A member of the RNA family "Small nucleolar RNA U19" from Populus trichocarpa, 138 nucleotides long. For this family Rfam cites "Experimental RNomics: identification of 140 candidates for small non-messenger RNAs in the plant Arabidopsis thaliana" (Marker et al., Curr Biol, 2002). Pairs were carried over by alignment from the consensus structure, which was predicted with WAR.
RNA sequence: AGCUGGCUUAGUUAGGAGGCAGAAAUCAAAUUAGAUCGAAAGAUGUUUUGUCUUCGGUCGUUUCAAUCUAAGGCCCGUUUGAGGGGACAAUUUUGCUCUUUUCAUUACCAGUUGUCCUCCAAGCAGCCUUUGACAUUC
Numbered sequence: 001a002g003c004u005g006g007c008u009u010a011g012u013u014a015g016g017a018g019g020c021a022g023a024a025a026u027c028a029a030a031u032u033a034g035a036u037c038g039a040a041a042g043a044u045g046u047u048u049u050g051u052c053u054u055c056g057g058u059c060g061u062u063u064c065a066a067u068c069u070a071a072g073g074c075c076c077g078u079u080u081g082a083g084g085g086g087a088c089a090a091u092u093u094u095g096c097u098c099u100u101u102u103c104a105u106u107a108c109c110a111g112u113u114g115u116c117c118u119c120c121a122a123g124c125a126g127c128c129u130u131u132g133a134c135a136u137u138c
Base pairs, nucleotide, nucleotide: 004021005020007018008017009016034059035058036057037056038055043053045051046050068132070130071129072128073127074126078123079122080121081120083119084118085117086116087115088114089113090112091111
Rfam 15.1 lists 421 matches to the family in 201 species. NCBI's taxonomy places the organism under Eukaryota, Streptophyta, Mesangiospermae, Malpighiales, Populus. The sequence is in the family's curated seed alignment.